Source information
A member of the RNA family "SAM riboswitch aptamer (S box leader)" from Nosocomiicoccus massiliensis, 99 nucleotides long. Taxonomically the source falls in Nosocomiicoccus (Bacteria, Bacilli, Caryophanales, Staphylococcaceae). Pairs were carried over by alignment from the consensus structure, which is taken from published work. The match comes from Rfam's covariance-model search (62 bits).
RNA sequence: CUCUUAUUAAGAGUGAGUGGAGGGAUUUGGCCCUGUGAAACUCCGGCAACAGCUUUUAGCGAUGUGCCAAUUCCAACAGUUUAUACUGAAUGCAAAGAG
Numbered sequence: 001c002u003c004u005u006a007u008u009a010a011g012a013g014u015g016a017g018u019g020g021a022g023g024g025a026u027u028u029g030g031c032c033c034u035g036u037g038a039a040a041c042u043c044c045g046g047c048a049a050c051a052g053c054u055u056u057u058a059g060c061g062a063u064g065u066g067c068c069a070a071u072u073c074c075a076a077c078a079g080u081u082u083a084u085a086c087u088g089a090a091u092g093c094a095a096a097g098a099g
Stems, first nucleotide, its partner, number of pairs: 001099005008092001013044001015043004022033003027076004045068004050064002052060003077088004